[Rfam]
RNA sequence: GAGUGGACUAGGCCGGGCGGCCAGGCCCCGCCCCUCGCCCGCAUGAUGGUCUUGAGCGGGGGCCGAACACCGGAGACGUCGGAUCCGCCGGGUGCGGACCCCGGCCCCAACCGUGGAAGCCUCGUCCCGCGGGGGCAGCGGUCCACGUCGGCUCGCCUGCAGGGGCGACUCGGCGUGGUUGAUCGGCGCCAGCCCGUCAGGCGCGGAAGCGAGCAGCGGAGCGCCGGACACCUGUCGCUCGCGGGGUUGCGGGGUGGAGGGACGGGCCGGGACUACCCGCACCCGAACGAUCCGGCAACUCCGGCCGUCCACUC
Number, nucleotide and partner (000 for none) at each position: 001g314002a313003g312004u311005g310006g309007a308008c307009u000010a000011g064012g063013c062014c061015g033016g032017g031018c030019g029020g028021c000022c000023a000024g000025g000026c000027c000028c020029c019030g018031c017032c016033c015034c000035u000036c000037g000038c060039c059040c058041g057042c056043a000044u054045g000046a000047u000048g000049g000050u000051c000052u000053u000054g044055a000056g042057c041058g040059g039060g038061g014062g013063c012064c011065g000066a000067a000068c000069a000070c304071c303072g302073g301074a300075g299076a000077c000078g296079u295080c294081g293082g292083a000084u289085c000086c000087g000088c000089c285090g284091g283092g282093u281094g280095c279096g278097g277098a000099c000100c271101c270102c269103g268104g267105c266106c265107c264108c000109a000110a000111c260112c259113g000114u257115g000116g000117a000118a000119g255120c254121c253122u252123c251124g250125u249126c245127c244128c243129g242130c241131g240132g239133g238134g236135g235136c234137a233138g232139c000140g229141g180142u000143c178144c177145a176146c175147g174148u173149c172150g171151g170152c000153u168154c167155g166156c165157c164158u163159g000160c000161a000162g000163g158164g157165g156166c155167g154168a153169c000170u151171c150172g149173g148174c147175g146176u145177g144178g143179u000180u141181g000182a000183u227184c226185g225186g224187c223188g222189c221190c000191a000192g000193c000194c219195c218196g217197u216198c000199a000200g000201g000202c211203g210204c209205g000206g000207a000208a000209g204210c203211g202212a000213g000214c000215a000216g197217c196218g195219g194220a000221g189222c188223g187224c186225c185226g184227g183228a000229c140230a000231c000232c138233u137234g136235u135236c134237g000238c133239u132240c131241g130242c129243g128244g127245g126246g000247u000248u000249g125250c124251g123252g122253g121254g120255u119256g000257g114258a000259g112260g111261g000262a000263c000264g107265g106266g105267c104268c103269g102270g101271g100272a000273c000274u000275a000276c000277c097278c096279g095280c094281a093282c092283c091284c090285g089286a000287a000288c000289g084290a000291u000292c082293c081294g080295g079296c078297a000298a000299c075300u074301c073302c072303g071304g070305c000306c000307g008308u007309c006310c005311a004312c003313u002314c001
This 314-nucleotide sequence from Halococcoides cellulosivorans belongs to the Rfam family "Archaeal signal recognition particle RNA".
On this family, see Wild et al., Curr Opin Struct Biol 2002: "Towards the structure of the mammalian signal recognition particle".
Its family is annotated with SRP-dependent cotranslational protein targeting to membrane, signal sequence recognition and signal recognition particle, plasma membrane targeting in the Gene Ontology.